This 297-nucleotide RNA from Portunus trituberculatus belongs to the Rfam family "Metazoan signal recognition particle RNA". The base pairs follow the family's consensus structure, which is taken from published work. From the family's description: The signal recognition particle (SRP) is a universally conserved ribonucleoprotein. It is involved in the co-translational targeting of proteins to membranes. The eukaryotic SRP consists of a 300-nucleotide 7S RNA and six proteins: SRPs 72, 68, 54, 19, 14, and 9. Archaeal SRP consists of a 7S RNA and homologues of the eukaryotic SRP19 and SRP54 proteins. For this family Rfam cites "Towards the structure of the mammalian signal recognition particle" (Wild et al., Curr Opin Struct Biol, 2002). It scores 252 bits against the family's covariance model. By type it is a non-coding RNA gene.
RNA sequence: GCUGGGGUUGGUGGCGCAACCUUGUAAUCCGGCGACUCGGAGGCCUGGGCCAGGGACGGCUUGAGGUGAGGACCACUGCUGCGGGACUCCCCAUGUUGAGUGGGCGUCCGCACUAAGCUCGGCAUCAAUAUGGCCGCCCCUGGGGAGCCGGGGGCGUCCAGGUUGCCUAAGGAGGUGUGAACCGGGCCAGGGGGGAAACCCAGCAGCCAAAAGCACCCGUGUCGAGCAGUAGUGGGAUCGCGCCCGUGAGUGGGCGGCCCGUAGUAGCCUUGCCAACACAGGCGAACCUGGUUCUUU
Numbered sequence: 001g002c003u004g005g006g007g008u009u010g011g012u013g014g015c016g017c018a019a020c021c022u023u024g025u026a027a028u029c030c031g032g033c034g035a036c037u038c039g040g041a042g043g044c045c046u047g048g049g050c051c052a053g054g055g056a057c058g059g060c061u062u063g064a065g066g067u068g069a070g071g072a073c074c075a076c077u078g079c080u081g082c083g084g085g086a087c088u089c090c091c092c093a094u095g096u097u098g099a100g101u102g103g104g105c106g107u108c109c110g111c112a113c114u115a116a117g118c119u120c121g122g123c124a125u126c127a128a129u130a131u132g133g134c135c136g137c138c139c140c141u142g143g144g145g146a147g148c149c150g151g152g153g154g155c156g157u158c159c160a161g162g163u164u165g166c167c168u169a170a171g172g173a174g175g176u177g178u179g180a181a182c183c184g185g186g187c188c189a190g191g192g193g194g195g196a197a198a199c200c201c202a203g204c205a206g207c208c209a210a211a212a213g214c215a216c217c218c219g220u221g222u223c224g225a226g227c228a229g230u231a232g233u234g235g236g237a238u239c240g241c242g243c244c245c246g247u248g249a250g251u252g253g254g255c256g257g258c259c260c261g262u263a264g265u266a267g268c269c270u271u272g273c274c275a276a277c278a279c280a281g282g283c284g285a286a287c288c289u290g291g292u293u294c295u296u297u
Stems, first nucleotide, its partner, number of pairs: 001044003004023007028041003047294008057284002060281002065274007076267010087256001090254005096248001100247008108236002111234005117227009126165004131160003135156009166172002174217005185208003192201003